[Rfam]
RNA: chrB-a RNA
RNA sequence: GGCAUGGGGGCAGCGAUCUCCCCAAGAGGCGACAUGCCGAAGCAUCGCGUCCCGGGCUGACUACGCGGACGCGUCAUG
Numbered sequence: 001g002g003c004a005u006g007g008g009g010g011c012a013g014c015g016a017u018c019u020c021c022c023c024a025a026g027a028g029g030c031g032a033c034a035u036g037c038c039g040a041a042g043c044a045u046c047g048c049g050u051c052c053c054g055g056g057c058u059g060a061c062u063a064c065g066c067g068g069a070c071g072c073g074u075c076a077u078g
Stems, first nucleotide, its partner, number of pairs: 005024006047072006